[Rfam]
RNA sequence: UCAGUUCAUGUAAACAUCCUACACUCAGCUGUUAUUGAUUGUCACAGAGGCUGAGAGGAGGUUGUUUACUUGAACUGG
Numbered sequence: 001u002c003a004g005u006u007c008a009u010g011u012a013a014a015c016a017u018c019c020u021a022c023a024c025u026c027a028g029c030u031g032u033u034a035u036u037g038a039u040u041g042u043c044a045c046a047g048a049g050g051c052u053g054a055g056a057g058g059a060g061g062u063u064g065u066u067u068a069c070u071u072g073a074a075c076u077g078g
Stems, first nucleotide, its partner, number of pairs: 002077005008071001010069007018061003022057001024055007

The family of this 78-nucleotide sequence from Oreochromis aureus is "mir-30 microRNA precursor family". Rfam links the family to the GO terms RISC complex and gene silencing by miRNA. The family's consensus secondary structure was predicted with PFOLD. This family consists of the mammalian microRNA (miRNA) precursor mir-30a. Animal miRNAs are transcribed as ~70nt precursors and subsequently processed by the Dicer enzyme to give a ~22nt product. In this case the mature sequence comes from both the 3' (miR-30) and 5' (mir-97-6) arms of the precursor. The extents of the hairpin precursors are not generally known and are estimated based on hairpin prediction. The products are thought to have regulatory roles through complementarity to mRNA. The involvement of Dicer in miRNA processing suggests a relationship with the phenomenon of RNA interference. miRNAs are numbered based on the sequence of the mature RNA. The match comes from Rfam's covariance-model search (60 bits). The source organism's lineage runs through Eukaryota, Bilateria, Clupeocephala, Euacanthomorphacea and Oreochromis.